[Rfam]
RNA sequence: AGGGAGAAUGAUACACAAGUGUCGGUAAACUGUUGGCCACUUGUCACCUGUCUCCCAACAUCAACACGUGCUCUCUGAUGACUGUAAUGUGUCGAGAUCUGAAUUACAGACAGAUACGGGGCACACAUGU
Numbered sequence: 001a002g003g004g005a006g007a008a009u010g011a012u013a014c015a016c017a018a019g020u021g022u023c024g025g026u027a028a029a030c031u032g033u034u035g036g037c038c039a040c041u042u043g044u045c046a047c048c049u050g051u052c053u054c055c056c057a058a059c060a061u062c063a064a065c066a067c068g069u070g071c072u073c074u075c076u077g078a079u080g081a082c083u084g085u086a087a088u089g090u091g092u093c094g095a096g097a098u099c100u101g102a103a104u105u106a107c108a109g110a111c112a113g114a115u116a117c118g119g120g121g122c123a124c125a126c127a128u129g130u
Base pairs, nucleotide, nucleotide: 002056003055004054005053006052007051015044016043017042018041021037022036023035024034068124069123070122071121072120073119074118082109083108084107087104088103090101
Rfam assigns this 130-nucleotide RNA sequence from Coptotermes formosanus to the family "Small Cajal body specific RNA 8". scaRNAs are a specific class of small nuclear RNAs which localise to the Cajal bodies and guide the modification of RNA polymerase II transcribed spliceosomal RNAs U1, U2, U4, U5 and U12. U92 belong to the H/ACA box class of guide RNAs as it has the predicted hairpin-hinge-hairpin-tail structure, conserved H/ACA-box motifs and is found associated with GAR1. The source organism's lineage runs through Eukaryota, Opisthokonta, Pancrustacea, Neoptera and Coptotermes. By type it is a small Cajal body RNA.